small nucleolar RNA snoR137: a 137-nucleotide sequence from Malus domestica. Gene Ontology terms of the family: nucleolus and RNA processing. Pairs were carried over by alignment from the consensus structure, which was predicted with RNAalifold.
RNA sequence: GUUGAUUCUUAUGGUGAUCCCCUGUAAAUUUCAUUGGUUGGGAAUGAUCAAGUUUCCGAAGCAUAGACAGAAUUUCCAGUACUAAACAGCACCGUGCAUUUAUGCUUGCACUAUGUUACCUGUCUCCUGGUACAUGU
Numbered sequence: 001g002u003u004g005a006u007u008c009u010u011a012u013g014g015u016g017a018u019c020c021c022c023u024g025u026a027a028a029u030u031u032c033a034u035u036g037g038u039u040g041g042g043a044a045u046g047a048u049c050a051a052g053u054u055u056c057c058g059a060a061g062c063a064u065a066g067a068c069a070g071a072a073u074u075u076c077c078a079g080u081a082c083u084a085a086a087c088a089g090c091a092c093c094g095u096g097c098a099u100u101u102a103u104g105c106u107u108g109c110a111c112u113a114u115g116u117u118a119c120c121u122g123u124c125u126c127c128u129g130g131u132a133c134a135u136g137u
Stems, first nucleotide, its partner, number of pairs: 003063002006060003015050005020042003076130004081125001088117003094111003